Record summary:
Rfam assigns this 155-nucleotide sequence to the family "DUF2800 RNA". Pairs were carried over by alignment from the consensus structure, which is taken from published work. The sequence is in the family's curated seed alignment.
[Rfam]
RNA sequence: CCGCUAUCCAUCGCAUUGUCUGAUCUACAAUGGCUCAACAGUGAAUGGCGGACAAGUUAAUAAACACAGCGCCUAUUGAGCGGGUUGCUGCAAUCCGAAGCGGAGAGAUUCGUUUGGACUGCGGUUUGCUUUUUGUGCCCAUUUGCAAUGGCGUU
Numbered sequence: 001c002c003g004c005u006a007u008c009c010a011u012c013g014c015a016u017u018g019u020c021u022g023a024u025c026u027a028c029a030a031u032g033g034c035u036c037a038a039c040a041g042u043g044a045a046u047g048g049c050g051g052a053c054a055a056g057u058u059a060a061u062a063a064a065c066a067c068a069g070c071g072c073c074u075a076u077u078g079a080g081c082g083g084g085u086u087g088c089u090g091c092a093a094u095c096c097g098a099a100g101c102g103g104a105g106a107g108a109u110u111c112g113u114u115u116g117g118a119c120u121g122c123g124g125u126u127u128g129c130u131u132u133u134u135g136u137g138c139c140c141a142u143u144u145g146c147a148a149u150g151g152c153g154u155u
Stems, first nucleotide, its partner, number of pairs: 001051005007045001009043003013039001014032005033081006067150002071146002087125005100113005